A member of the RNA family "L4-Archaeoglobi ribosomal protein leades", 86 nucleotides long.
RNA sequence: CUGAAAACAGGCAUGCGGGGUGGACGUAUCCCCUGGGAUAUGAGCCCAUAAUCUGCCUUGAAACGGCAGGUUCAUGCUGGAUUCAG
Numbered sequence: 001c002u003g004a005a006a007a008c009a010g011g012c013a014u015g016c017g018g019g020g021u022g023g024a025c026g027u028a029u030c031c032c033c034u035g036g037g038a039u040a041u042g043a044g045c046c047c048a049u050a051a052u053c054u055g056c057c058u059u060g061a062a063a064c065g066g067c068a069g070g071u072u073c074a075u076g077c078u079g080g081a082u083u084c085a086g
Stems, first nucleotide, its partner, number of pairs: 001086005010078005018047003025042007050072008059063001
About this RNA: The literature on the family includes a 2020 paper in BMC Microbiol by Eckert and Weinberg, "Discovery of 20 novel ribosomal leader candidates in bacteria and archaea".